Annotation: This 58-nucleotide RNA sequence from Carissa macrocarpa belongs to the Rfam family "Plastid-psbA-2 3UTR RNA". About the family: Plastid psbA-2 is a non-coding RNA (ncRNA) present in plastids. It was identified in inverted repeat sequences in the 3 prime untranslate region (3UTR) of photosystem II quinone-binding protein (psbA). By type it is a cis-regulatory element. NCBI's taxonomy places the organism under Eukaryota, eudicotyledons, lamiids, Apocynaceae, Carissa. The sequence is in the family's curated seed alignment. Clan: Plastid-psbA 3UTR RNA clan. The literature on the family includes a 2023 paper in Plant Commun by Richter et al., "Retrograde signaling in plants: A critical review focusing on the GUN pathway and beyond".
RNA sequence: AAGGAGCAAUAAUCACCCUCUUGUUCUAUCAAGAGGUGGUAUUGCUCCUUUAUUUUCU
Numbered sequence: 001a002a003g004g005a006g007c008a009a010u011a012a013u014c015a016c017c018c019u020c021u022u023g024u025u026c027u028a029u030c031a032a033g034a035g036g037u038g039g040u041a042u043u044g045c046u047c048c049u050u051u052a053u054u055u056u057c058u
Stems, first nucleotide, its partner, number of pairs: 001050011013038001016035001019034005